[Rfam]
RNA: mir-8/mir-141/mir-200 microRNA precursor family
Organism: Leptidea sinapis
RNA sequence: GUUCACAUCUUACCGGGCAGCAUUAGAGUCCUACAGUAUAUAUUUCUAAUACUGUCAGGUAAAGAUGUCCUC
Numbered sequence: 001g002u003u004c005a006c007a008u009c010u011u012a013c014c015g016g017g018c019a020g021c022a023u024u025a026g027a028g029u030c031c032u033a034c035a036g037u038a039u040a041u042a043u044u045u046c047u048a049a050u051a052c053u054g055u056c057a058g059g060u061a062a063a064g065a066u067g068u069c070c071u072c
Stems, first nucleotide, its partner, number of pairs: 005068005010062005016056005022050006